Background:
Shown here is a 180-nucleotide sequence from Mycobacterium kansasii, a member of the family "Actinobacteria sRNA Ms_IGR-5". It is annotated as a small RNA. Pairs were carried over by alignment from the consensus structure.
[Rfam]
RNA sequence: ACACAGGAAAGGAGGUGGUCCGCGAAAUUGAUAGCUUCAUGGACAUGUGAGGUGGCUGCGCGCUAGCUGCAAUGGCUCGGAAGAGCCGGCGUUCUACGCACGCUGGCGAAUCCCACGUAGCCACCCGGCCCUCGAGCUUCCGGUCUGUCCAACCGGAAAAGCGCUCGGGGGCCGCUCCAU
Numbered sequence: 001a002c003a004c005a006g007g008a009a010a011g012g013a014g015g016u017g018g019u020c021c022g023c024g025a026a027a028u029u030g031a032u033a034g035c036u037u038c039a040u041g042g043a044c045a046u047g048u049g050a051g052g053u054g055g056c057u058g059c060g061c062g063c064u065a066g067c068u069g070c071a072a073u074g075g076c077u078c079g080g081a082a083g084a085g086c087c088g089g090c091g092u093u094c095u096a097c098g099c100a101c102g103c104u105g106g107c108g109a110a111u112c113c114c115a116c117g118u119a120g121c122c123a124c125c126c127g128g129c130c131c132u133c134g135a136g137c138u139u140c141c142g143g144u145c146u147g148u149c150c151a152a153c154c155g156g157a158a159a160a161g162c163g164c165u166c167g168g169g170g171g172c173c174g175c176u177c178c179a180u
Stems, first nucleotide, its partner, number of pairs: 015059005061108007069101001126174012139157006